[Rfam]
RNA: U4 spliceosomal RNA
Organism: Enhydra lutris
RNA sequence: AGCUUUGCGCAGUGGUAGUAUGGUAGCCAAUGAGGUUUAUCUGAGGCGCGAUUAUUGCUAAAAAAGGAAACCUAUGCCAUUUCUCAGCUAUACAUGUCUGUUAAAAGGAAAUCAUUUCCUUUUGACAACAAA
Numbered sequence: 001a002g003c004u005u006u007g008c009g010c011a012g013u014g015g016u017a018g019u020a021u022g023g024u025a026g027c028c029a030a031u032g033a034g035g036u037u038u039a040u041c042u043g044a045g046g047c048g049c050g051a052u053u054a055u056u057g058c059u060a061a062a063a064a065a066g067g068a069a070a071c072c073u074a075u076g077c078c079a080u081u082u083c084u085c086a087g088c089u090a091u092a093c094a095u096g097u098c099u100g101u102u103a104a105a106a107g108g109a110a111a112u113c114a115u116u117u118c119c120u121u122u123u124g125a126c127a128a129c130a131a132a
Base pairs, nucleotide, nucleotide: 020052021051023049024048026047027046028045034042035041078108080106081104082103085100086099087098089096090095121132122131123130124129